[Rfam]
RNA: Small nucleolar RNA SNORD121A
Organism: Pogona vitticeps
RNA sequence: GGCCAGAUGACUGUGAUGUGAUCUUUCCAAGCACAUAUCCGACUGCUCCAUGUGGAAAUCAAGUAUUCCUGAGUCUUCUGGCC
Numbered sequence: 001g002g003c004c005a006g007a008u009g010a011c012u013g014u015g016a017u018g019u020g021a022u023c024u025u026u027c028c029a030a031g032c033a034c035a036u037a038u039c040c041g042a043c044u045g046c047u048c049c050a051u052g053u054g055g056a057a058a059u060c061a062a063g064u065a066u067u068c069c070u071g072a073g074u075c076u077u078c079u080g081g082c083c
Stems, first nucleotide, its partner, number of pairs: 001083006009075003